[Rfam]
RNA sequence: ACCACUGAGCCAUCUCGCCAGCCCUACAAUUAUUUUUAAAUUAGAAUGUAAGGGGGCUGGGGAGAUGGCUCAGUGGA
Numbered sequence: 001a002c003c004a005c006u007g008a009g010c011c012a013u014c015u016c017g018c019c020a021g022c023c024c025u026a027c028a029a030u031u032a033u034u035u036u037u038a039a040a041u042u043a044g045a046a047u048g049u050a051a052g053g054g055g056g057c058u059g060g061g062g063a064g065a066u067g068g069c070u071c072a073g074u075g076g077a
Stems, first nucleotide, its partner, number of pairs: 002076015018060007